[Rfam]
RNA sequence: GUUACAAGGAUGAUGAUUCAAUUAGAUGUGUGAAAGGAUAAAUCUUUUUUGAACACAAUUAUUGAGGCAAACUGUCUGACUUGUUUAAC
Numbered sequence: 001g002u003u004a005c006a007a008g009g010a011u012g013a014u015g016a017u018u019c020a021a022u023u024a025g026a027u028g029u030g031u032g033a034a035a036g037g038a039u040a041a042a043u044c045u046u047u048u049u050u051g052a053a054c055a056c057a058a059u060u061a062u063u064g065a066g067g068c069a070a071a072c073u074g075u076c077u078g079a080c081u082u083g084u085u086u087a088a089c
Stems, first nucleotide, its partner, number of pairs: 001089003004084005
Rfam assigns this 89-nucleotide RNA sequence from Lathyrus oleraceus to the family "Small nucleolar RNA Z266". The family's RNA type in Rfam is C/D-box small nucleolar RNA. The organism belongs to Lathyrus, within Eukaryota. The family has 11 seed sequences and 719 matches in Rfam 15.1. The literature on the family includes a 2003 paper in Nucleic Acids Res by Chen et al., "The high diversity of snoRNAs in plants: identification and comparative study of 120 snoRNA genes from Oryza sativa". Its family is annotated with RNA processing and nucleolus in the Gene Ontology.